[Rfam]
RNA: Mason-Pfizer monkey virus packaging signal
Organism: Nannospalax galili
RNA sequence: UAGCACCCAACGUGAGGCUUGGAUACUGGGGACACCGUGAGGGAGAUGAUGUAGAAGAAGGGGUGCGCACCCGCUGCAUCUCAAGUAGUUCAGAGAUGCUGUGGGAGCCUGCCACGACCGAGCCGAAGGUAAGUCAAGUCGUCCAAUCAUGGGGCAAGCAUUAAGUCAGCAUGAGAUUUAUGUCAUACAGUUAAGGGAAGCUCUCAAGGCAAGAGGAGUAAAGGUAACAACUGAUGAUUUAUUUCAUUUCUUUGAUUUUGUGAAGGACCUUUGUCCCU
Numbered sequence: 001u002a003g004c005a006c007c008c009a010a011c012g013u014g015a016g017g018c019u020u021g022g023a024u025a026c027u028g029g030g031g032a033c034a035c036c037g038u039g040a041g042g043g044a045g046a047u048g049a050u051g052u053a054g055a056a057g058a059a060g061g062g063g064u065g066c067g068c069a070c071c072c073g074c075u076g077c078a079u080c081u082c083a084a085g086u087a088g089u090u091c092a093g094a095g096a097u098g099c100u101g102u103g104g105g106a107g108c109c110u111g112c113c114a115c116g117a118c119c120g121a122g123c124c125g126a127a128g129g130u131a132a133g134u135c136a137a138g139u140c141g142u143c144c145a146a147u148c149a150u151g152g153g154g155c156a157a158g159c160a161u162u163a164a165g166u167c168a169g170c171a172u173g174a175g176a177u178u179u180a181u182g183u184c185a186u187a188c189a190g191u192u193a194a195g196g197g198a199a200g201c202u203c204u205c206a207a208g209g210c211a212a213g214a215g216g217a218g219u220a221a222a223g224g225u226a227a228c229a230a231c232u233g234a235u236g237a238u239u240u241a242u243u244u245c246a247u248u249u250c251u252u253u254g255a256u257u258u259u260g261u262g263a264a265g266g267a268c269c270u271u272u273g274u275c276c277c278u
Base pairs, nucleotide, nucleotide: 006031007030008029012026013025014024036048037047038046087130089128090126091125097120098119100116101115102114103113104112138155139154142153143152144151145150163204165201166200213253214252215251216250217249218248222240223239224238225237227235263278265276266275267274268273